[Rfam]
RNA sequence: UCUGGCAAUGAUGACACACUUGCCCUCUCUGAGAACAGCGCUUGCUAAUGAGAGAAGCUUUACGUACUCAGCAGAGCUGAGCCAGA
Numbered sequence: 001u002c003u004g005g006c007a008a009u010g011a012u013g014a015c016a017c018a019c020u021u022g023c024c025c026u027c028u029c030u031g032a033g034a035a036c037a038g039c040g041c042u043u044g045c046u047a048a049u050g051a052g053a054g055a056a057g058c059u060u061u062a063c064g065u066a067c068u069c070a071g072c073a074g075a076g077c078u079g080a081g082c083c084a085g086a
Base pairs, nucleotide, nucleotide: 001086002085003084004083005082006081
A member of the RNA family "Small nucleolar RNA SNORD103/SNORD85" from Bambusicola thoracicus, 86 nucleotides long. Rfam 15.1 lists 1,349 matches to the family in 595 species. Its family is annotated with RNA processing and nucleolus in the Gene Ontology.